[Rfam]
Background:
This 106-nucleotide RNA from Tepidimicrobium xylanilyticum belongs to the Rfam family "Glycine riboswitch aptamer". The family is grouped with related families in Rfam's "Glycine riboswitch clan".

Nucleotides: 106
Base pairs, nucleotide, nucleotide: 006101007100008099009098010097011096012095013094020034021033022032023031036086037085038084039082040081043080044079045078049073050072051071052070053069054068055067056066057065
Number, partner (000 for none) and nucleotide at each position: 001000a002000u003000g004000a005000a006101a007100a008099g009098u010097g011096c012095g013094g014000g015000a016000g017000a018000g019000a020034c021033c022032a023031a024000a025000a026000u027000u028000a029000u030000u031023u032022u033021g034020g035000c036086g037085c038084c039082g040081a041000a042000g043080g044079a045078u046000u047000a048000a049073g050072u051071c052070a053069u054068a055067a056066a057065a058000c059000u060000u061000g062000c063000c064000a065057u066056u067055u068054u069053a070052u071051g072050a073049u074000g075000a076000c077000g078045a079044u080043c081040u082039c083000a084038g085037g086036c087000a088000a089000a090000a091000g092000a093000a094013c095012c096011g097010u098009a099008c100007u101006u102000u103000g104000a105000c106000g
Rfam describes the family as follows. This family represents the bacterial glycine riboswitch. Gene Ontology term of the family: glycine biosynthetic process.